[Rfam]
RNA sequence: UGAUGGUGCAGGCAGAGAUGCACUGUAUACCCGUGUAACCGAAUUGACGUUUAAGCGAUAUGUAAUAUCGUCGGCCACGGGGAAGCCGCCUUCGGGCGGCUUUUUUUGCAUGA
Numbered sequence: 001u002g003a004u005g006g007u008g009c010a011g012g013c014a015g016a017g018a019u020g021c022a023c024u025g026u027a028u029a030c031c032c033g034u035g036u037a038a039c040c041g042a043a044u045u046g047a048c049g050u051u052u053a054a055g056c057g058a059u060a061u062g063u064a065a066u067a068u069c070g071u072c073g074g075c076c077a078c079g080g081g082g083a084a085g086c087c088g089c090c091u092u093c094g095g096g097c098g099g100c101u102u103u104u105u106u107u108g109c110a111u112g113a
Stems, first nucleotide, its partner, number of pairs: 007027005012021003030081006039074003042051003055071006082103009

Background
Shown here is a 113-nucleotide RNA sequence, a member of the family "DUF3800-I RNA". It is annotated as a small RNA.